A member of the RNA family "Purine riboswitch aptamer" from Petrocella atlantisensis, 101 nucleotides long.

[Rfam]
RNA sequence: GAAAAAUGACAUGCAAUAACUCGUAUAAUUCAGCAAUAUGGGCUGAAAGUUUCUACAAACUACCGUAAAUAGUUAUAGCUAUGAGUUCCUAAAUGAUACAA
Numbered sequence: 001g002a003a004a005a006a007u008g009a010c011a012u013g014c015a016a017u018a019a020c021u022c023g024u025a026u027a028a029u030u031c032a033g034c035a036a037u038a039u040g041g042g043c044u045g046a047a048a049g050u051u052u053c054u055a056c057a058a059a060c061u062a063c064c065g066u067a068a069a070u071a072g073u074u075a076u077a078g079c080u081a082u083g084a085g086u087u088c089c090u091a092a093a094u095g096a097u098a099c100a101a
Base pairs, nucleotide, nucleotide: 018087019086020085021084022083023082024081025080029047030046031045032044033043034042058074059073060072061071062070